[Rfam]
RNA: Guanidine-I riboswitch aptamer
Organism: Acaryochloris marina
RNA sequence: AAUACUUGUUUCUAGGGUUCCGAUUUGAGCGCAAUUUCGUCUUAAAUGACUGGUCCAAGAGAAACAGCUAGCUUUUUACAUAUCUAUUACCCACAGACAUGUAGCUAGUGACACGGAGGGACAAAAGCCCGGGAGAA
Numbered sequence: 001a002a003u004a005c006u007u008g009u010u011u012c013u014a015g016g017g018u019u020c021c022g023a024u025u026u027g028a029g030c031g032c033a034a035u036u037u038c039g040u041c042u043u044a045a046a047u048g049a050c051u052g053g054u055c056c057a058a059g060a061g062a063a064a065c066a067g068c069u070a071g072c073u074u075u076u077u078a079c080a081u082a083u084c085u086a087u088u089a090c091c092c093a094c095a096g097a098c099a100u101g102u103a104g105c106u107a108g109u110g111a112c113a114c115g116g117a118g119g120g121a122c123a124a125a126a127g128c129c130c131g132g133g134a135g136a137a
Stems, first nucleotide, its partner, number of pairs: 007066006015056002020053002022050001023047006067109007112132001114135001118130003